[Rfam]
RNA sequence: GGCGUAAAGGGUUCGCAGGCGGAUAGGAAAGUCUAAAGUAAAAAGCGAGGGCUCAACCCUCGUAAGCAGUAGAAACUAACUAUCUUGAGAAGUGGAGAGGUAAGUGGAAUUACUAGUGUAGCGGUGAAAUGCGUAGAUAUUAGUAAGAAUACCGGUAGCGAAGGCGACUUACUGGACACUAACUGACGCUGAGGAACGAAAGCGUGGGUAGCAAACAGGAUUAGAUACCCUGGUAGUCCACGCCGUAAACGAUGAGUGCUAGGUGUUGGGAGGAAUCUCAGUGCCGCAGCAAACGCAAUAAGCACUCCGCCUGGGGAGUACGUGCGCAAGCAUGAAACUCAAAGGAAU
Numbered sequence: 001g002g003c004g005u006a007a008a009g010g011g012u013u014c015g016c017a018g019g020c021g022g023a024u025a026g027g028a029a030a031g032u033c034u035a036a037a038g039u040a041a042a043a044a045g046c047g048a049g050g051g052c053u054c055a056a057c058c059c060u061c062g063u064a065a066g067c068a069g070u071a072g073a074a075a076c077u078a079a080c081u082a083u084c085u086u087g088a089g090a091a092g093u094g095g096a097g098a099g100g101u102a103a104g105u106g107g108a109a110u111u112a113c114u115a116g117u118g119u120a121g122c123g124g125u126g127a128a129a130u131g132c133g134u135a136g137a138u139a140u141u142a143g144u145a146a147g148a149a150u151a152c153c154g155g156u157a158g159c160g161a162a163g164g165c166g167a168c169u170u171a172c173u174g175g176a177c178a179c180u181a182a183c184u185g186a187c188g189c190u191g192a193g194g195a196a197c198g199a200a201a202g203c204g205u206g207g208g209u210a211g212c213a214a215a216c217a218g219g220a221u222u223a224g225a226u227a228c229c230c231u232g233g234u235a236g237u238c239c240a241c242g243c244c245g246u247a248a249a250c251g252a253u254g255a256g257u258g259c260u261a262g263g264u265g266u267u268g269g270g271a272g273g274a275a276u277c278u279c280a281g282u283g284c285c286g287c288a289g290c291a292a293a294c295g296c297a298a299u300a301a302g303c304a305c306u307c308c309g310c311c312u313g314g315g316g317a318g319u320a321c322g323u324g325c326g327c328a329a330g331c332a333u334g335a336a337a338c339u340c341a342a343a344g345g346a347a348u
Base pairs, nucleotide, nucleotide: 001311002310003309009308011197012196013195014194016191018190019189020188022084023083024082025081026080030077031076032073033072034071035070038067039066045063046062047061048060049059050058051057088184089183091180092179093178094177099173100172101171102170103169104168105167106150110146111145112144113143114142115141116140117139121132122131123130158165159164202243203242204241205240206239207238211237212236216232217231218230219229254307255306256305257304258303259302262285263284264283265282266281267280268279269278270277271276289296290295313340314339315338322333323332324331325330
A member of the RNA family "Bacterial small subunit ribosomal RNA" from Peptoniphilus sp. ING2-D1G, 348 nucleotides of a longer RNA. Lineage of the source: Bacteria > Tissierellia > Tissierellales > Peptoniphilaceae > Peptoniphilus. Clan: SSU clan.